[Rfam]
RNA sequence: AUAAUGAUACUCCCGUGCAGUCGAGGUUAAGUCCCAGAGUACGGCCCGGACGGAUGUCGGGGAGGUGGAAUUCCUGUGA
Numbered sequence: 001a002u003a004a005u006g007a008u009a010c011u012c013c014c015g016u017g018c019a020g021u022c023g024a025g026g027u028u029a030a031g032u033c034c035c036a037g038a039g040u041a042c043g044g045c046c047c048g049g050a051c052g053g054a055u056g057u058c059g060g061g062g063a064g065g066u067g068g069a070a071u072u073c074c075u076g077u078g079a
Stems, first nucleotide, its partner, number of pairs: 012076001013044006045062003049058003063075003
RNA: pemK RNA